[Rfam]
RNA sequence: CUACCUUUCCGGGGCAGGGUGCAACUCCCGACCGGCGGUGAUGGGCAGCAAGCCCUUAGUCCGUGACCCGCAUAUAUGCGGUGGAUCCGGUGUAAUUCCGGAGCCGACAGUGAAAGUCUGGAUGGGAGGAAAGGACG
Numbered sequence: 001c002u003a004c005c006u007u008u009c010c011g012g013g014g015c016a017g018g019g020u021g022c023a024a025c026u027c028c029c030g031a032c033c034g035g036c037g038g039u040g041a042u043g044g045g046c047a048g049c050a051a052g053c054c055c056u057u058a059g060u061c062c063g064u065g066a067c068c069c070g071c072a073u074a075u076a077u078g079c080g081g082u083g084g085a086u087c088c089g090g091u092g093u094a095a096u097u098c099c100g101g102a103g104c105c106g107a108c109a110g111u112g113a114a115a116g117u118c119u120g121g122a123u124g125g126g127a128g129g130a131a132a133g134g135a136c137g
Stems, first nucleotide, its partner, number of pairs: 004134007017029003031117002033106002035064004059104002068081002086102005108120003
Shown here is a 137-nucleotide RNA sequence from Domibacillus epiphyticus, a member of the family "FMN riboswitch aptamer (RFN element)". The match comes from Rfam's covariance-model search (110 bits).